[Rfam]
RNA: mir-490 microRNA precursor family
Organism: Pogona vitticeps
RNA sequence: UGAUCCAUUCAUGGUUCGACACCAUGGAUCUCCAGGUGGGUCAAGAUUAUAGAUAAACACCAACCUGGAGGACUCCAUGCUGUUGAGCUAUUCAUGA
Numbered sequence: 001u002g003a004u005c006c007a008u009u010c011a012u013g014g015u016u017c018g019a020c021a022c023c024a025u026g027g028a029u030c031u032c033c034a035g036g037u038g039g040g041u042c043a044a045g046a047u048u049a050u051a052g053a054u055a056a057a058c059a060c061c062a063a064c065c066u067g068g069a070g071g072a073c074u075c076c077a078u079g080c081u082g083u084u085g086a087g088c089u090a091u092u093c094a095u096g097a
Stems, first nucleotide, its partner, number of pairs: 016086006023079006029071009039061003